Rfam assigns this 274-nucleotide part of an RNA from Acetobacteraceae bacterium AT-5844 to the family "Bacterial large subunit ribosomal RNA". A search with the family's covariance model found it, with a score of 2723 bits.
[Rfam]
RNA sequence: GACAAAGAGGGUGAGAACCCCUCUCGCCGAAAGUCCAAGGGUUCCUGCGCAAGGCCAAUCCGCGCAGGGUGAGCCGGUCCCUAAGGCGAGGGCGACAGCCGUAGCCGAUGGAAAUCAGGUGAAUAUUCCUGAGCCCGCUAGAAGUGACGGCCGUGAACCGUUGUUCCUCCUUAUUGGAUUGGAGGGGCUGCCGGAUCGGUCCAGGAAAUAGCUCUAGCAUAUGGUCCGUACCCGAAACCGACACAGGUGGACUGGUUGAGUAUACCGAGGCGCU
Numbered sequence: 001g002a003c004a005a006a007g008a009g010g011g012u013g014a015g016a017a018c019c020c021c022u023c024u025c026g027c028c029g030a031a032a033g034u035c036c037a038a039g040g041g042u043u044c045c046u047g048c049g050c051a052a053g054g055c056c057a058a059u060c061c062g063c064g065c066a067g068g069g070u071g072a073g074c075c076g077g078u079c080c081c082u083a084a085g086g087c088g089a090g091g092g093c094g095a096c097a098g099c100c101g102u103a104g105c106c107g108a109u110g111g112a113a114a115u116c117a118g119g120u121g122a123a124u125a126u127u128c129c130u131g132a133g134c135c136c137g138c139u140a141g142a143a144g145u146g147a148c149g150g151c152c153g154u155g156a157a158c159c160g161u162u163g164u165u166c167c168u169c170c171u172u173a174u175u176g177g178a179u180u181g182g183a184g185g186g187g188c189u190g191c192c193g194g195a196u197c198g199g200u201c202c203a204g205g206a207a208a209u210a211g212c213u214c215u216a217g218c219a220u221a222u223g224g225u226c227c228g229u230a231c232c233c234g235a236a237a238c239c240g241a242c243a244c245a246g247g248u249g250g251a252c253u254g255g256u257u258g259a260g261u262a263u264a265c266c267g268a269g270g271c272g273c274u
Base pairs, nucleotide, nucleotide: 006024007023008022009021010020011019025272026271027270028269033252034251035250036249039232040231044068045067046066047065048064049063053061054060075228076227077226080111081110085106086105087104089102091100092099093098115132116131117130118129119128135224136223140215141214142213145210149201150200151199152198158194159193160192163188164187165186166185167184168183169182170181238247239246254266255265256264